RNA sequence: CUCUCAUCCAGAGAGGUGGAGGGAAACGGCCCGAUGAAGCCCGGCAACCCGUGUUGCAAAGUCGCAUUACACAGGGUGCCAAUUCCGGCGGAAUGCAUAAUCCGCAAGAUGAGGG
Numbered sequence: 001c002u003c004u005c006a007u008c009c010a011g012a013g014a015g016g017u018g019g020a021g022g023g024a025a026a027c028g029g030c031c032c033g034a035u036g037a038a039g040c041c042c043g044g045c046a047a048c049c050c051g052u053g054u055u056g057c058a059a060a061g062u063c064g065c066a067u068u069a070c071a072c073a074g075g076g077u078g079c080c081a082a083u084u085c086c087g088g089c090g091g092a093a094u095g096c097a098u099a100a101u102c103c104g105c106a107a108g109a110u111g112a113g114g115g
Stems, first nucleotide, its partner, number of pairs: 001115008013042001015041003021032003027087003043080004048076002051072004084107001089104004094099001
RNA: SAM riboswitch aptamer (S box leader)
Organism: Thermosporothrix hazakensis